[Rfam]
This 259-nucleotide RNA sequence from Anisodus acutangulus belongs to the Rfam family "RNase MRP".
A search with the family's covariance model found it, with a score of 73 bits.
The family's RNA type in Rfam is ribozyme.

RNA sequence: GGACCGCAUGAAGACGUGAAUUGGCCAUAACCCAUUCUUUGGAUGGAAGGUCCAGGAAAGUCCCCGGGCCGUAUCAGCAGGGAUGCGGGCUCAGACAUGAGUUAAGCUUUCAUGAGCUUCGGAAUCCAAUCUCAUACUUGAGAUGGGCUGAGACGAGGGUGGAGCCUUAUGAAUCCGGCCCAGAAAGCCCACUUGGCCAUUAAACAGUUAUUCACGUGGUCUAGUAGACUAACUGAACGGGGCUUACAAUCAUGUGGUC
Numbered sequence: 001g002g003a004c005c006g007c008a009u010g011a012a013g014a015c016g017u018g019a020a021u022u023g024g025c026c027a028u029a030a031c032c033c034a035u036u037c038u039u040u041g042g043a044u045g046g047a048a049g050g051u052c053c054a055g056g057a058a059a060g061u062c063c064c065c066g067g068g069c070c071g072u073a074u075c076a077g078c079a080g081g082g083a084u085g086c087g088g089g090c091u092c093a094g095a096c097a098u099g100a101g102u103u104a105a106g107c108u109u110u111c112a113u114g115a116g117c118u119u120c121g122g123a124a125u126c127c128a129a130u131c132u133c134a135u136a137c138u139u140g141a142g143a144u145g146g147g148c149u150g151a152g153a154c155g156a157g158g159g160u161g162g163a164g165c166c167u168u169a170u171g172a173a174u175c176c177g178g179c180c181c182a183g184a185a186a187g188c189c190c191a192c193u194u195g196g197c198c199a200u201u202a203a204a205c206a207g208u209u210a211u212u213c214a215c216g217u218g219g220u221c222u223a224g225u226a227g228a229c230u231a232a233c234u235g236a237a238c239g240g241g242g243c244u245u246a247c248a249a250u251c252a253u254g255u256g257g258u259c
Base pairs, nucleotide, nucleotide: 002259003258004257005256006255007254008253009252010251011250014217015216016215017214018213019212022054023052024051025050026049028047032046033045034044035043036042037041058245059244060243062242063241064240065239077086078085079084088103089102090101091100092099093098106188107187109185110184111183113182114181119178120177121176122175132172133171134170135169136168219229220228221227222226